[Rfam]
RNA: FMN riboswitch aptamer (RFN element)
RNA sequence: GGGUGUUCUCAGGGCGGGGUGUAAUUCCCCACCGGCGGUGAGAGUGUCCUCCAGAUGGGGAGGCUCAAGCCCGCGAGCGCCACCGUAUUCCGCUUAUGGAGGGUGGGUCAGCAGAUCCGGUGUGAUUCCGGAGCCGACGGUCAUAGUCCGGAUGGAAGAGAACCGUG
Numbered sequence: 001g002g003g004u005g006u007u008c009u010c011a012g013g014g015c016g017g018g019g020u021g022u023a024a025u026u027c028c029c030c031a032c033c034g035g036c037g038g039u040g041a042g043a044g045u046g047u048c049c050u051c052c053a054g055a056u057g058g059g060g061a062g063g064c065u066c067a068a069g070c071c072c073g074c075g076a077g078c079g080c081c082a083c084c085g086u087a088u089u090c091c092g093c094u095u096a097u098g099g100a101g102g103g104u105g106g107g108u109c110a111g112c113a114g115a116u117c118c119g120g121u122g123u124g125a126u127u128c129c130g131g132a133g134c135c136g137a138c139g140g141u142c143a144u145a146g147u148c149c150g151g152a153u154g155g156a157a158g159a160g161a162a163c164c165g166u167g
Stems, first nucleotide, its partner, number of pairs: 005163006017029003031147002033136002035074004069134002077112002116132005138150003